[Rfam]
RNA: Mammalian CPEB3 ribozyme
Organism: Crocodylus porosus
RNA sequence: CAGCAAGUUCAAGGCCACAACAGAAGCUCUUGUAGUGCAGUCUGUCAGAUGCCAGUGAAUCUGCAAAUUCUGCU
Numbered sequence: 001c002a003g004c005a006a007g008u009u010c011a012a013g014g015c016c017a018c019a020a021c022a023g024a025a026g027c028u029c030u031u032g033u034a035g036u037g038c039a040g041u042c043u044g045u046c047a048g049a050u051g052c053c054a055g056u057g058a059a060u061c062u063g064c065a066a067a068u069u070c071u072g073c074u
Stems, first nucleotide, its partner, number of pairs: 013042003019074001021072005026038002046063005052057001